GA-cis RNA: a 91-nucleotide sequence.
RNA sequence: UACAGGAGGUCCCCAAAUGAUGCGGAGCAUCUUUUUUGCAUGGGACCGACGAUUUGCCGCCGAAGCGCCGGCUGAGGGGGCGAUUCCAUAA
Number, nucleotide and partner (000 for none) at each position: 001u000002a000003c000004a000005g000006g000007a000008g047009g046010u045011c044012c043013c042014c000015a000016a000017a033018u000019g031020a030021u029022g028023c000024g000025g000026a000027g000028c022029a021030u020031c019032u000033u017034u000035u000036u000037u000038g000039c000040a000041u000042g013043g012044g011045a010046c009047c008048g000049a000050c000051g000052a000053u000054u000055u000056g081057c080058c079059g000060c077061c076062g000063a000064a073065g072066c000067g000068c000069c000070g000071g000072c065073u064074g000075a000076g061077g060078g000079g058080g057081c056082g000083a000084u000085u000086c000087c000088a000089u000090a000091a000
By type it is a small RNA. The base pairs follow the family's consensus structure, which is taken from published work.